[Rfam]
RNA sequence: UGCUUUAAAAUGCACGCAUUAUAUCCUGGUGAAGAAUAGCUAAUCACUAUGCCAGGACAAUAUCUCAAUGCACGGACGAGACUAAAGGAUACUUUGGUCGGUAGUUUACGUUCUCAAUGUAUAAGGCUAUGCCGAAGUCGGAGAGUGAAGACGGGAACCCGUCAAGCAAGGAGAGUUGGUGUGUAUUAUAUACAACGAUUAGUGUGACAUGCUUUUGGUCAGUGUAAUAGACGGCUCCUGUGGAGCAAUAACCCUGGGAACUGGAUGAGCUGGUAACUCAUUACAGAUGGCAGGGAAUUACCAAAACAAGCUGAUUUGCCGUGAUACCUGGACAACCAGGAGUAUAACAAAAGCAUAAGUCGUAAGUAGCCCAAGGCAAUAAAAGAUUAUUUAUGAUAUUGAACAAUUAUCAAUGAAUAAAACAAUCUGAAUGAUGGGUGAAAGCUGGAGGUGAUAUUCCUUCAUGGGUUUGACGCUAAUUAAGGACGAACAUCACAAUCCAUCCGUAGGGUGCGAGAGUAUGUUGUAGAAUUAAUUUAGCUGGGGCAAGAAGUCAUUAUCGACGGAUAUUUGGCUCAGACUUGUCUCCCCAUUCGCAUAAUAAAUUACAGUAUAUAAUUCAUAAGAUGAAUAAAAGUCUAUAAUGUGUGUGUUUUAAAG
Numbered sequence: 001u002g003c004u005u006u007a008a009a010a011u012g013c014a015c016g017c018a019u020u021a022u023a024u025c026c027u028g029g030u031g032a033a034g035a036a037u038a039g040c041u042a043a044u045c046a047c048u049a050u051g052c053c054a055g056g057a058c059a060a061u062a063u064c065u066c067a068a069u070g071c072a073c074g075g076a077c078g079a080g081a082c083u084a085a086a087g088g089a090u091a092c093u094u095u096g097g098u099c100g101g102u103a104g105u106u107u108a109c110g111u112u113c114u115c116a117a118u119g120u121a122u123a124a125g126g127c128u129a130u131g132c133c134g135a136a137g138u139c140g141g142a143g144a145g146u147g148a149a150g151a152c153g154g155g156a157a158c159c160c161g162u163c164a165a166g167c168a169a170g171g172a173g174a175g176u177u178g179g180u181g182u183g184u185a186u187u188a189u190a191u192a193c194a195a196c197g198a199u200u201a202g203u204g205u206g207a208c209a210u211g212c213u214u215u216u217g218g219u220c221a222g223u224g225u226a227a228u229a230g231a232c233g234g235c236u237c238c239u240g241u242g243g244a245g246c247a248a249u250a251a252c253c254c255u256g257g258g259a260a261c262u263g264g265a266u267g268a269g270c271u272g273g274u275a276a277c278u279c280a281u282u283a284c285a286g287a288u289g290g291c292a293g294g295g296a297a298u299u300a301c302c303a304a305a306a307c308a309a310g311c312u313g314a315u316u317u318g319c320c321g322u323g324a325u326a327c328c329u330g331g332a333c334a335a336c337c338a339g340g341a342g343u344a345u346a347a348c349a350a351a352a353g354c355a356u357a358a359g360u361c362g363u364a365a366g367u368a369g370c371c372c373a374a375g376g377c378a379a380u381a382a383a384a385g386a387u388u389a390u391u392u393a394u395g396a397u398a399u400u401g402a403a404c405a406a407u408u409a410u411c412a413a414u415g416a417a418u419a420a421a422a423c424a425a426u427c428u429g430a431a432u433g434a435u436g437g438g439u440g441a442a443a444g445c446u447g448g449a450g451g452u453g454a455u456a457u458u459c460c461u462u463c464a465u466g467g468g469u470u471u472g473a474c475g476c477u478a479a480u481u482a483a484g485g486a487c488g489a490a491c492a493u494c495a496c497a498a499u500c501c502a503u504c505c506g507u508a509g510g511g512u513g514c515g516a517g518a519g520u521a522u523g524u525u526g527u528a529g530a531a532u533u534a535a536u537u538u539a540g541c542u543g544g545g546g547c548a549a550g551a552a553g554u555c556a557u558u559a560u561c562g563a564c565g566g567a568u569a570u571u572u573g574g575c576u577c578a579g580a581c582u583u584g585u586c587u588c589c590c591c592a593u594u595c596g597c598a599u600a601a602u603a604a605a606u607u608a609c610a611g612u613a614u615a616u617a618a619u620u621c622a623u624a625a626g627a628u629g630a631a632u633a634a635a636a637g638u639c640u641a642u643a644a645u646g647u648g649u650g651u652g653u654u655u656u657a658a659a660g
Base pairs, nucleotide, nucleotide: 008656009655010654020644025056026055027054028053029052036050037049038048039047058178059177060176061175063174064173073110074109075106076105077104080099081098082097083096084095085094086093087092111147113145114144115143118140119139121138150163151162152161153160154159187618198607200605203604207360208359210355211354212353213352214351215350216349217348218315219314220313221312222311223310234246235245236244237243252295253294254293255292256291261286262285263284265281266280267279272302273301274300275299316379317378318377319376320375327340328339329338330337331336363444369439370438371437372436373435426580427579428578429577448463449462450461451460465592466591467590468541469540470539543589544588545587546586549583550582553576555573556572558569559568560567561566625640626639627638628637
Dot-bracket structure: .......(((.........(....(((((......((((.......)))).))))).((((.((........(((((..((((((((....))))))))....)))..))(.(((..((.(................)))..))).)..(((((....))))).........))))))........(..........(.(..(...((.((((((((((((((..........((((.....)))).....(((((....(((.(((....[[[[...)))..)))....)))))...]]]].......))))))[[[[[......(((((....))))).......))))))))...))..(.....(((((.]]]]]..............................................[[[[.....)))))....)...((((........)))).((((((....................................................................))).((((..((..(.((.((((....))))..))..)]]]].))..)))))))...........)).)..........)......((((........))))...).........)))....
The record is a 660-nucleotide RNA, which matches "ROOL RNA" in Rfam. The sequence is in the family's curated seed alignment. Firmicutes, Fusobacteria (1 example), Tenericutes (1 example). The family's RNA type in Rfam is small RNA.